Rfam assigns this 193-nucleotide RNA sequence to the family "manA RNA". The base pairs follow the family's consensus structure, which is taken from published work. By type it is a cis-regulatory element. manA RNA has been located in 5'UTR regions of genes of mannose or fructose metabolism. Has been proposed as a cis-regulatory element and as a riboswitch candidate for his complex secondary structure.

RNA sequence: UGUAAGGACGCUUACAUCGGGAGUGACUGAAUAAACUUGCUGGCAUACGUCUAGUUAAGGUGAUGAGUUAGAGGUGGUGCUCGCUGCUGGGAACAGUAGAACUACAAACCAAGUAGAACUCAGGUCUGAUGGUCUUUCUAACUGUAGAAAUGCCCCAUCAGUGUUGGAACACAGAAACCCAACCUCCCUCUUU
Numbered sequence: 001u002g003u004a005a006g007g008a009c010g011c012u013u014a015c016a017u018c019g020g021g022a023g024u025g026a027c028u029g030a031a032u033a034a035a036c037u038u039g040c041u042g043g044c045a046u047a048c049g050u051c052u053a054g055u056u057a058a059g060g061u062g063a064u065g066a067g068u069u070a071g072a073g074g075u076g077g078u079g080c081u082c083g084c085u086g087c088u089g090g091g092a093a094c095a096g097u098a099g100a101a102c103u104a105c106a107a108a109c110c111a112a113g114u115a116g117a118a119c120u121c122a123g124g125u126c127u128g129a130u131g132g133u134c135u136u137u138c139u140a141a142c143u144g145u146a147g148a149a150a151u152g153c154c155c156c157a158u159c160a161g162u163g164u165u166g167g168a169a170c171a172c173a174g175a176a177a178c179c180c181a182a183c184c185u186c187c188c189u190c191u192u193u
Stems, first nucleotide, its partner, number of pairs: 001016006019188005026061002039055005064122006071082003075111004084099006102116004126161007135150004142174004163183005